[Rfam]
Nucleotides: 198
Stems, first nucleotide, its partner, number of pairs: 002197008080115008095101002
Number, partner (000 for none) and nucleotide at each position: 001000a002197g003196g004195g005194a006193c007192c008191a009190a010000g011000a012000u013000g014000a015000u016000g017000g018000c019000u020000g021000a022000c023000c024000a025000a026000a027000u028000c029000c030000a031000g032000c033000u034000g035000g036000u037000g038000a039000u040000g041000g042000a043000g044000c045000c046000g047000g048000a049000g050000g051000c052000g053000c054000a055000u056000g057000g058000c059000g060000g061000c062000c063000a064000g065000a066000g067000g068000c069000g070000g071000u072000g073000u074000c075000a076000u077000g078000u079000u080115g081114u082113g083112c084111u085110g086109g087108c088000a089000g090000a091000a092000a093000c094000a095101g096100c097000a098000u099000a100096g101095c102000a103000a104000g105000g106000u107000g108087g109086u110085c111084g112083g113082u114081a115080c116000u117000c118000a119000g120000u121000g122000a123000u124000a125000a126000u127000c128000u129000c130000a131000u132000c133000a134000c135000a136000g137000c138000a139000g140000c141000a142000g143000g144000u145000c146000g147000a148000a149000g150000u151000g152000c153000a154000g155000u156000g157000c158000a159000g160000a161000c162000c163000u164000a165000c166000a167000c168000a169000u170000g171000a172000a173000a174000a175000a176000u177000c178000u179000a180000a181000a182000a183000a184000u185000c186000u187000g188000a189000a190009u191008u192007g193006g194005u195004u196003u197002c198000u
The record is a 198-nucleotide sequence from Oryza sativa, which matches "Small nucleolar RNA Z242" in Rfam. By type it is a C/D-box small nucleolar RNA. NCBI's taxonomy places the organism under Eukaryota, Streptophytina, Euphyllophyta, Oryza, Oryza sativa. Rfam links the family to the GO terms nucleolus and RNA processing.